RNA sequence: AGAUAUCUGAAGUGUACGUUGUUUACACAUCGUGCGAACCGAACACUUUAUUAUUAUAUAGGGAUUCUACUGAAGGUCUGGAAUGACAACCCUUUUACACUUGGAAGUCAGGAAGGAUUUUCUUGAAGCCCACCUGCAGUUACUUGCGGGUUCAUUACAUGUGUACGCCUUGACGGCAUAUUCGGAUAUUCU
Number, nucleotide and partner (000 for none) at each position: 001a000002g190003a189004u188005a187006u186007c185008u184009g183010a182011a181012g179013u178014g177015u176016a000017c175018g174019u173020u000021g000022u000023u000024u000025a000026c000027a000028c000029a000030u000031c000032g158033u157034g156035c000036g153037a152038a151039c150040c149041g000042a000043a000044c000045a000046c000047u000048u000049u000050a000051u000052u000053a000054u000055u000056a000057u000058a000059u000060a000061g131062g130063g129064a000065u127066u126067c125068u000069a123070c000071u000072g000073a121074a120075g119076g118077u117078c116079u115080g000081g000082a000083a000084u000085g109086a108087c000088a000089a000090c000091c104092c103093u000094u000095u000096u000097a000098c000099a000100c000101u000102u000103g092104g091105a000106a000107g000108u086109c085110a000111g000112g000113a000114a000115g079116g078117a077118u076119u075120u074121u073122c000123u069124u000125g067126a066127a065128g000129c063130c062131c061132a000133c000134c000135u000136g000137c000138a000139g000140u000141u000142a000143c000144u000145u000146g000147c000148g000149g040150g039151u038152u037153c036154a000155u000156u034157a033158c032159a000160u000161g000162u000163g000164u000165a000166c000167g000168c000169c000170u000171u000172g000173a019174c018175g017176g015177c014178a013179u012180a000181u011182u010183c009184g008185g007186a006187u005188a004189u003190u002191c000192u000

The family of this 192-nucleotide sequence from Globicatella sp. HMSC072A10 is "6S / SsrS RNA".
E. coli 6S RNA was the first non coding RNA to be sequenced, but its function was unknown until recently. It consists of 184 nucleotides that fold into an extended hairpin structure with a large single-stranded internal bulge. The 6S RNA specifically associates with RNA polymerase holoenzyme containing the sigma70 specificity factor.
The base pairs follow the family's consensus structure, which is taken from published work.
The match comes from Rfam's covariance-model search (69 bits).
Rfam classes the family as a non-coding RNA gene.